RNA sequence: GGGGGGAGCGAGCGCCCCCCAAACCAU
Number, nucleotide and partner (000 for none) at each position: 001g020002g019003g018004g017005g016006g015007a000008g000009c000010g000011a000012g027013c000014g025015c006016c005017c004018c003019c002020c001021a000022a000023a000024c000025c014026a000027u012
RNA: ribosomal frameshift site
Organism: Aquarana catesbeiana